Rfam assigns this 112-nucleotide RNA sequence from Pseudohongiella nitratireducens to the family "Ribosomal S15 leader". A reference for the family is Benard et al. (1996), "Pseudoknot and translational control in the expression of the S15 ribosomal protein", Biochimie. From the family's description: The E. coli Ribosomal S15 gene 5' UTR can form two alternative structures. One that is a series of three hairpins, The other includes a pseudoknot. The organism belongs to Pseudohongiella, within Bacteria. By type it is a cis-regulatory leader. It scores 55 bits against the family's covariance model.

RNA sequence: CUGGCUGGCAUGGGAUGCCGAAUUCAAUAGAUGCAUAUUUUUUGGAGAAAGUAACAUGGCAUUAACGACAGAAAAGAAAGCUGAACUCGUAAAAGAAUUUGGUCGUGGUGAU
Numbered sequence: 001c002u003g004g005c006u007g008g009c010a011u012g013g014g015a016u017g018c019c020g021a022a023u024u025c026a027a028u029a030g031a032u033g034c035a036u037a038u039u040u041u042u043u044g045g046a047g048a049a050a051g052u053a054a055c056a057u058g059g060c061a062u063u064a065a066c067g068a069c070a071g072a073a074a075a076g077a078a079a080g081c082u083g084a085a086c087u088c089g090u091a092a093a094a095g096a097a098u099u100u101g102g103u104c105g106u107g108g109u110g111a112u
Stems, first nucleotide, its partner, number of pairs: 007019005042065004047060001